[Rfam]
RNA sequence: AUAGUGAGGUAAUCGAGCAGAAAUGUUAGGAAAGUCCAUGCUAGCACAGCCUGCGAUGGCUGUAGUGUUUGUGCCAGUCCAAUAAAUAAGGCUGGGUACCUUUAUGGUAACGGCAACGUAUAACCUAAGUCUAUGAUAUGGUUAUACAAUAACGUGCCACAGUGACGAAACUACUAGAAAUGGUAGAGUGAAACGAGGUAAACCCCUCAAGCUAGAAACCCAAAUUUGGUAGGGGAAUUUCUAAAAGCGAACUGAAGCUUAAAGAAGAUACGUAAGUAUAGAUAAAUGAUUACCACUAGAAAUAGAACAGAACAUGGCUUAUGAUC
Numbered sequence: 001a002u003a004g005u006g007a008g009g010u011a012a013u014c015g016a017g018c019a020g021a022a023a024u025g026u027u028a029g030g031a032a033a034g035u036c037c038a039u040g041c042u043a044g045c046a047c048a049g050c051c052u053g054c055g056a057u058g059g060c061u062g063u064a065g066u067g068u069u070u071g072u073g074c075c076a077g078u079c080c081a082a083u084a085a086a087u088a089a090g091g092c093u094g095g096g097u098a099c100c101u102u103u104a105u106g107g108u109a110a111c112g113g114c115a116a117c118g119u120a121u122a123a124c125c126u127a128a129g130u131c132u133a134u135g136a137u138a139u140g141g142u143u144a145u146a147c148a149a150u151a152a153c154g155u156g157c158c159a160c161a162g163u164g165a166c167g168a169a170a171c172u173a174c175u176a177g178a179a180a181u182g183g184u185a186g187a188g189u190g191a192a193a194c195g196a197g198g199u200a201a202a203c204c205c206c207u208c209a210a211g212c213u214a215g216a217a218a219c220c221c222a223a224a225u226u227u228g229g230u231a232g233g234g235g236a237a238u239u240u241c242u243a244a245a246a247g248c249g250a251a252c253u254g255a256a257g258c259u260u261a262a263a264g265a266a267g268a269u270a271c272g273u274a275a276g277u278a279u280a281g282a283u284a285a286a287u288g289a290u291u292a293c294c295a296c297u298a299g300a301a302a303u304a305g306a307a308c309a310g311a312a313c314a315u316g317g318c319u320u321a322u323g324a325u326c
Stems, first nucleotide, its partner, number of pairs: 004326001007322001008294007016027004032320003036317005041215005046063006069210003073206001074095006096111001097109004112205002122143004129137003154203002156199003171186006219234003238267005268279004296305003
Bacterial RNase P class B: a 326-nucleotide RNA from Clostridium sp. CAG:307. Clan: RNaseP clan. NCBI's taxonomy places the organism under Bacteria, Bacillati, Eubacteriales, Clostridiaceae, Clostridium. A search with the family's covariance model found it, with a score of 252 bits. The literature on the family includes a 1998 paper in Annu Rev Biochem by Frank and Pace, "Ribonuclease P: unity and diversity in a tRNA processing ribozyme". The family's consensus secondary structure is taken from published work. Ribonuclease P (RNase P) is a ubiquitous endoribonuclease, found in archaea, bacteria and eukarya as well as chloroplasts and mitochondria. Its best characterised activity is the generation of mature 5'-ends of tRNAs by cleaving the 5'-leader elements of precursor-tRNAs.